The record is a 106-nucleotide RNA sequence from Prolemur simus, which matches "Y RNA" in Rfam. The source organism's lineage runs through Eukaryota, Metazoa, Eumetazoa, Dipnotetrapodomorpha and Prolemur. Y RNAs are components of the Ro ribonucleoprotein particle (Ro RNP), in association with Ro60 and La proteins. The Y RNAs and Ro60 and La proteins are well conserved, but the function of the Ro RNP is not known. The base pairs follow the family's consensus structure, which is taken from published work. It is annotated as a non-coding RNA gene.

[Rfam]
RNA sequence: GGCUGGUCCAAAGGUAUUGAGUUACCUCAGUUGAUUUUUCACAGUCACAGAUUAAACUCCUUAUUUUGCUUUCCUCCCUUGUCACUACUGCAUUUGAUUAGUAAAU
Numbered sequence: 001g002g003c004u005g006g007u008c009c010a011a012a013g014g015u016a017u018u019g020a021g022u023u024a025c026c027u028c029a030g031u032u033g034a035u036u037u038u039u040c041a042c043a044g045u046c047a048c049a050g051a052u053u054a055a056a057c058u059c060c061u062u063a064u065u066u067u068g069c070u071u072u073c074c075u076c077c078c079u080u081g082u083c084a085c086u087a088c089u090g091c092a093u094u095u096g097a098u099u100a101g102u103a104a105a106u
Stems, first nucleotide, its partner, number of pairs: 002102007010095002014091002016086001018084003040068002043065001